[Rfam]
RNA sequence: ACACGAGAAGGGAGGUGGUUCCGGAAAUGUAUGGCAACCGGACGCGUGAGGUGGCUGCGGGCUAGCGCCCGACGUCGCAGACGCACCCAGUGUGCUGUGUCGGCGCCAGGCGCCGGCCAAUACCCAGCAGUCACCCGACCCGCGGGCUCGCCGGCACGUCCGGCCGGCUCCUCUUUCCUGCAGGAGAGGACCCGAGCCCGCGGGUCGUCUGCG
Number, nucleotide and partner (000 for none) at each position: 001a000002c000003a000004c000005g000006a000007g000008a000009a000010g000011g000012g000013a000014g000015g058016u057017g056018g055019u054020u000021c000022c000023g000024g000025a000026a000027a000028u000029g000030u000031a000032u000033g000034g000035c000036a000037a000038c000039c000040g000041g000042a000043c000044g000045c000046g000047u000048g000049a000050g000051g000052u000053g000054g019055c018056u017057g016058c015059g000060g118061g117062c116063u115064a000065g113066c112067g000068c110069c109070c000071g107072a000073c105074g104075u103076c102077g101078c000079a000080g000081a000082c000083g000084c000085a000086c000087c000088c000089a000090g000091u000092g000093u000094g000095c000096u000097g000098u000099g000100u000101c077102g076103g075104c074105g073106c000107c071108a000109g069110g068111c000112g066113c065114c000115g063116g062117c061118c060119a000120a000121u000122a000123c000124c000125c000126a000127g000128c000129a000130g000131u000132c000133a000134c000135c000136c207137g206138a205139c204140c203141c202142g201143c200144g199145g198146g197147c196148u195149c000150g168151c167152c166153g165154g164155c163156a000157c000158g000159u000160c000161c000162g000163g155164c154165c153166g152167g151168c150169u000170c000171c000172u000173c000174u000175u000176u000177c000178c000179u000180g000181c000182a000183g000184g000185a000186g000187a000188g000189g000190a000191c000192c000193c000194g000195a148196g147197c146198c145199c144200g143201c142202g141203g140204g139205u138206c137207g136208u000209c000210u000211g000212c000213g000